About this RNA
Shown here is an 87-nucleotide RNA from Ricinus communis, a member of the family "mir-156 microRNA precursor family". The source organism's lineage runs through Eukaryota, Embryophyta, Magnoliopsida, Gunneridae and Ricinus. Rfam 15.1 lists 1,401 matches to the family in 221 species. The family's consensus secondary structure was predicted with PFOLD. This family represents the plant microRNA (miRNA) precursor mir-156.
[Rfam]
Nucleotides: 087
Stems, first nucleotide, its partner, number of pairs: 001087008010077003014073008023064002
Number, partner (000 for none) and nucleotide at each position: 001087g002086u003085g004084a005083c006082a007081g008080a009000a010077g011076a012075g013000a014073g015072u016071g017070a018069g019068c020067a021066c022000a023064c024063a025000u026000g027000g028000u029000u030000u031000u032000c033000u034000u035000g036000c037000a038000u039000a040000u041000c042000g043000a044000u045000a046000c047000u048000u049000g050000a051000u052000g053000c054000u055000u056000u057000u058000a059000g060000c061000u062000c063024u064023g065000u066021g067020u068019g069018c070017u071016c072015a073014c074000c075012c076011u077010c078000u079000a080008u081007c082006u083005g084004u085003c086002g087001c